[Rfam]
Annotation: The family of this 58-nucleotide RNA sequence from Monodelphis domestica is "mir-1544 microRNA precursor family". The organism belongs to Monodelphis, within Eukaryota. Rfam links the family to the GO terms RISC complex and miRNA-mediated post-transcriptional gene silencing. A search with the family's covariance model found it, with a score of 46 bits.
RNA sequence: ACACCCAGGGAUUGAAUAGUGGUCUCCAAAAAGCUCCCUUUUCUGUCCCUGGGACUAG
Numbered sequence: 001a002c003a004c005c006c007a008g009g010g011a012u013u014g015a016a017u018a019g020u021g022g023u024c025u026c027c028a029a030a031a032a033g034c035u036c037c038c039u040u041u042u043c044u045g046u047c048c049c050u051g052g053g054a055c056u057a058g
Base pairs, nucleotide, nucleotide: 005052006051007050008049009048010047011046012045015042016041018039019038021036022035